[Rfam]
RNA sequence: GGGGGUGUAAUGGCUUCGACAUGCAUUGGGUAACAUAAUAAUUAGUGGUCUGCAAACCUUAAGGCACCUAGGCUUAAUACGUGCAAACGAAGAAAAGUCAGAAGAAGUUCAUGUAGAACUUCCAGCAUUUGCAAUUGCAAAUGCUAAUAGAAAUCUUGCAUUCGCUUAGUUAAAAGCUGCAAGUGGCUUGGUUAAAGUUUCCAAUUUAACUAAGUUGGUUUUAUGGAAUAGUUCUGUUUUAUAGGUCUAAAAGCAGAAUGAAAUUUCUGACCUAGUGAUAUAAAUAUUUUUUGUUUGUUUUAUUGUUUUUAUCACUUAAUUUAAAAAUAAACUAAACUAUAAAAAGUUAUUGUGUAUUCUUGAUGUGUGGACUCGGGUUCAACUCCCGACAUCUCCACCA
Numbered sequence: 001g002g003g004g005g006u007g008u009a010a011u012g013g014c015u016u017c018g019a020c021a022u023g024c025a026u027u028g029g030g031u032a033a034c035a036u037a038a039u040a041a042u043u044a045g046u047g048g049u050c051u052g053c054a055a056a057c058c059u060u061a062a063g064g065c066a067c068c069u070a071g072g073c074u075u076a077a078u079a080c081g082u083g084c085a086a087a088c089g090a091a092g093a094a095a096a097g098u099c100a101g102a103a104g105a106a107g108u109u110c111a112u113g114u115a116g117a118a119c120u121u122c123c124a125g126c127a128u129u130u131g132c133a134a135u136u137g138c139a140a141a142u143g144c145u146a147a148u149a150g151a152a153a154u155c156u157u158g159c160a161u162u163c164g165c166u167u168a169g170u171u172a173a174a175a176g177c178u179g180c181a182a183g184u185g186g187c188u189u190g191g192u193u194a195a196a197g198u199u200u201c202c203a204a205u206u207u208a209a210c211u212a213a214g215u216u217g218g219u220u221u222u223a224u225g226g227a228a229u230a231g232u233u234c235u236g237u238u239u240u241a242u243a244g245g246u247c248u249a250a251a252a253g254c255a256g257a258a259u260g261a262a263a264u265u266u267c268u269g270a271c272c273u274a275g276u277g278a279u280a281u282a283a284a285u286a287u288u289u290u291u292u293g294u295u296u297g298u299u300u301u302a303u304u305g306u307u308u309u310u311a312u313c314a315c316u317u318a319a320u321u322u323a324a325a326a327a328u329a330a331a332c333u334a335a336a337c338u339a340u341a342a343a344a345a346g347u348u349a350u351u352g353u354g355u356a357u358u359c360u361u362g363a364u365g366u367g368u369g370g371a372c373u374c375g376g377g378u379u380c381a382a383c384u385c386c387c388g389a390c391a392u393c394u395c396c397a398c399c400a
Base pairs, nucleotide, nucleotide: 001396002395003394004393005392006391007390020369021368022367023366024365025364026363027362028361029360033355034354035353036352037351038350039349040348041347042346043345046336051070052069134162136160137159138158139157140156164215165214166213167212168211169210170195171194172193173192174189175188176187177186183224184223185222232258233257234256235255236254237253238252239251240250244272245271246270247269274316275315276314277313278312279311280310282308283307289302293332294331295330296329299326373389374388375387376386377385
Shown here is a 400-nucleotide RNA from Mycoplasma tauri, a member of the family "transfer-messenger RNA". It scores 104 bits against the family's covariance model. On this family, see Williams and Bartel, RNA 1996: "Phylogenetic analysis of tmRNA secondary structure". Rfam describes the family as follows. Bacterial tmRNA, also known as 10Sa RNA or SsrA, is named for its dual tRNA and mRNA-like properties. The family's consensus secondary structure is taken from published work. Its Rfam clan is "tRNA clan". NCBI's taxonomy places the organism under Bacteria, Bacillati, Mycoplasmatota, Mollicutes, Mycoplasma.